Rfam assigns this 73-nucleotide sequence from Lacticaseibacillus camelliae to the family "tRNA". The match comes from Rfam's covariance-model search (67 bits). By type it is a transfer RNA.
[Rfam]
RNA sequence: GGGUCCGUAGCUCAGUUGGGAGAGCGCUGCCUUCGCAUGGCAGAGGUCGUGAGUUCGAAUCUCAUCGGAUCCA
Numbered sequence: 001g002g003g004u005c006c007g008u009a010g011c012u013c014a015g016u017u018g019g020g021a022g023a024g025c026g027c028u029g030c031c032u033u034c035g036c037a038u039g040g041c042a043g044a045g046g047u048c049g050u051g052a053g054u055u056c057g058a059a060u061c062u063c064a065u066c067g068g069a070u071c072c073a
Base pairs, nucleotide, nucleotide: 001072002071003070004069005068006067007066010025011024012023013022027043028042029041030040031039049065050064051063052062053061